Mason-Pfizer monkey virus packaging signal: a 277-nucleotide RNA sequence from Nannospalax galili. Rfam 15.1 lists 2,921 matches to the family in 53 species. Its family is annotated with viral genome packaging in the Gene Ontology. Lineage of the source: Eukaryota > Amniota > Glires > Spalacidae > Nannospalax. On this family, see Mustafa et al., Virus Res 2004: "Mutational analysis of the predicted secondary RNA structure of the Mason-Pfizer monkey virus packaging signal".

[Rfam]
RNA sequence: UGGCGCCCAAUGUGGGGCUUGGAUACUGGGGGCAUAGUGAGGGAGACGACAAAAAAAGGAAGGAGUGCACUCGCUAAAUCUCAAGCAAUUUGGAGACGCGCUGCGGGGGCCUGCCAUGACCAAACCGAAGGUAAGUCAAGCCGUCCAAAUCAUAGGGCAAAAAUUAAGCCAAUAUCAAAUUUAUGUUAUACAGUUAAGGGAAGCUCUCAAGACAAGAGGAGUAAAGGUUAAGACUGAGGAUUUCAUUUCUUUGAUUUUGUAAAGGACGUUUGUCCCU
Numbered sequence: 001u002g003g004c005g006c007c008c009a010a011u012g013u014g015g016g017g018c019u020u021g022g023a024u025a026c027u028g029g030g031g032g033c034a035u036a037g038u039g040a041g042g043g044a045g046a047c048g049a050c051a052a053a054a055a056a057a058g059g060a061a062g063g064a065g066u067g068c069a070c071u072c073g074c075u076a077a078a079u080c081u082c083a084a085g086c087a088a089u090u091u092g093g094a095g096a097c098g099c100g101c102u103g104c105g106g107g108g109g110c111c112u113g114c115c116a117u118g119a120c121c122a123a124a125c126c127g128a129a130g131g132u133a134a135g136u137c138a139a140g141c142c143g144u145c146c147a148a149a150u151c152a153u154a155g156g157g158c159a160a161a162a163a164u165u166a167a168g169c170c171a172a173u174a175u176c177a178a179a180u181u182u183a184u185g186u187u188a189u190a191c192a193g194u195u196a197a198g199g200g201a202a203g204c205u206c207u208c209a210a211g212a213c214a215a216g217a218g219g220a221g222u223a224a225a226g227g228u229u230a231a232g233a234c235u236g237a238g239g240a241u242u243u244c245a246u247u248u249c250u251u252u253g254a255u256u257u258u259g260u261a262a263a264g265g266a267c268g269u270u271u272g273u274c275c276c277u
Stems, first nucleotide, its partner, number of pairs: 006031003012026003035049001037047002085132002090129002098121001102118002105115002140158002145156002148153001166207001168204002216252006225243005262277001264275004